Shown here is a 63-nucleotide sequence from Pseudonocardia endophytica, a member of the family "Fluoride riboswitch aptamer (crcB RNA motif)". Gene Ontology terms of the family: response to fluoride and positive regulation of gene expression. The family's consensus secondary structure is taken from published work.

RNA sequence: UCUUCCAGCGGCGAUGGUGCCCGCCCUAACCGCCCGCUCCGGGCUGAUGGCUCCUACCAACUG
Numbered sequence: 001u002c003u004u005c006c007a008g009c010g011g012c013g014a015u016g017g018u019g020c021c022c023g024c025c026c027u028a029a030c031c032g033c034c035c036g037c038u039c040c041g042g043g044c045u046g047a048u049g050g051c052u053c054c055u056a057c058c059a060a061c062u063g
Stems, first nucleotide, its partner, number of pairs: 010025004016054002019051003032044004